c-di-GMP-I-GGC riboswitch aptamer: an 87-nucleotide RNA sequence from Sporomusaceae bacterium FL31.
[Rfam]
RNA sequence: UGCAAUAUCGGCAAACUUAUCGAAAGAUAAGGACGCAAAGCCAUGGGUCUAACGAUCGUAUGAUACAAGACUGCCAGGUUGCUGUAA
Numbered sequence: 001u002g003c004a005a006u007a008u009c010g011g012c013a014a015a016c017u018u019a020u021c022g023a024a025a026g027a028u029a030a031g032g033a034c035g036c037a038a039a040g041c042c043a044u045g046g047g048u049c050u051a052a053c054g055a056u057c058g059u060a061u062g063a064u065a066c067a068a069g070a071c072u073g074c075c076a077g078g079u080u081g082c083u084g085u086a087a
Base pairs, nucleotide, nucleotide: 001087003084004083011036012035016031017030018029019028020027021026034073039080040079041078042077044076045075046074047071048070049069
The base pairs follow the family's consensus structure, which is taken from published work.